Annotation
The record is a 172-nucleotide RNA sequence from Actinobacillus pleuropneumoniae, which matches "Lysine riboswitch aptamer" in Rfam. The organism belongs to Actinobacillus pleuropneumoniae serovar 5, within Bacteria.
RNA sequence: ACAAAUCGUAGAGGUGCAAAUCCGAUAAGUACUUUUUCUGAGUGGAGAACGAGGAGGAAAAAGGAAAGGCGUAUUUGCCGAAAUCAGUUAAGCGUCAUCUUAAUUGGUUGGGGUCGUUACCGAAAGGGACGACACUGUCGUAAUCCUUGUAUUACGGAGUGCUACUGCUAGG
Numbered sequence: 001a002c003a004a005a006u007c008g009u010a011g012a013g014g015u016g017c018a019a020a021u022c023c024g025a026u027a028a029g030u031a032c033u034u035u036u037u038c039u040g041a042g043u044g045g046a047g048a049a050c051g052a053g054g055a056g057g058a059a060a061a062a063g064g065a066a067a068g069g070c071g072u073a074u075u076u077g078c079c080g081a082a083a084u085c086a087g088u089u090a091a092g093c094g095u096c097a098u099c100u101u102a103a104u105u106g107g108u109u110g111g112g113g114u115c116g117u118u119a120c121c122g123a124a125a126g127g128g129a130c131g132a133c134a135c136u137g138u139c140g141u142a143a144u145c146c147u148u149g150u151a152u153u154a155c156g157g158a159g160u161g162c163u164a165c166u167g168c169u170a171g172g
Stems, first nucleotide, its partner, number of pairs: 006167001008165004016078006023071002032063008082109011110136002113133006120126001138157007